[Rfam]
RNA sequence: UGCACUGUGUGGUAGCUGCAUCCAGCAGCAUUCUCCUGGUGGGAUGUUCACAAAACAGUGCUACGGUAGUUCAGUGUUCGGCAUCGUUGGUUUUUGUUCUGCUGUGUCUGUUAAACCUGGUAUUUCUGCUGAUGCAGUC
Number, nucleotide and partner (000 for none) at each position: 001u000002g061003c060004a059005c058006u057007g056008u000009g000010u000011g000012g000013u000014a000015g000016c000017u052018g047019c046020a045021u044022c043023c042024a040025g000026c038027a037028g036029c000030a000031u000032u000033c000034u000035c000036c028037u027038g026039g000040u024041g000042g023043g022044a021045u020046g019047u018048u000049c000050a000051c000052a017053a000054a000055a000056c007057a006058g005059u004060g003061c002062u000063a000064c128065g127066g126067u000068a124069g123070u122071u120072c119073a118074g117075u000076g000077u000078u000079c000080g108081g107082c106083a105084u104085c000086g000087u000088u000089g000090g000091u000092u000093u000094u000095u000096g000097u000098u000099c000100u000101g000102c000103u000104g084105u083106g082107u081108c080109u000110g000111u000112u000113a000114a000115a000116c000117c074118u073119g072120g071121u000122a070123u069124u068125u000126c066127u065128g064129c000130u000131g000132a000133u000134g000135c000136a000137g000138u000139c000
RNA: Small nucleolar RNA SNORA8